[Rfam]
RNA sequence: UAAGGAGUCGCCGAAAACCUAUAAAAGAGUAGGCA
Numbered sequence: 001u002a003a004g005g006a007g008u009c010g011c012c013g014a015a016a017a018c019c020u021a022u023a024a025a026a027g028a029g030u031a032g033g034c035a
Stems, first nucleotide, its partner, number of pairs: 003020003010034003
A member of the RNA family "DUF805b RNA", 35 nucleotides long. The family's consensus secondary structure is taken from published work. The sequence is in the family's curated seed alignment. Clan: DUF805 clan.